[Rfam]
RNA sequence: AAGUGUCACAGCUCUUUUAGAAUUUGUCCAGCAGGUUUUCUGGCUUAUGCUGGAAAACUAAC
Numbered sequence: 001a002a003g004u005g006u007c008a009c010a011g012c013u014c015u016u017u018u019a020g021a022a023u024u025u026g027u028c029c030a031g032c033a034g035g036u037u038u039u040c041u042g043g044c045u046u047a048u049g050c051u052g053g054a055a056a057a058c059u060a061a062c
Stems, first nucleotide, its partner, number of pairs: 034059011

Rfam assigns this 62-nucleotide RNA sequence from Castor canadensis to the family "U7 small nuclear RNA". Animal histone pre-mRNAs are spliced by a different mechanism than nuclear pre-mRNAs and self-splicing introns. The source organism's lineage runs through Eukaryota, Metazoa, Theria, Castoridae and Castor.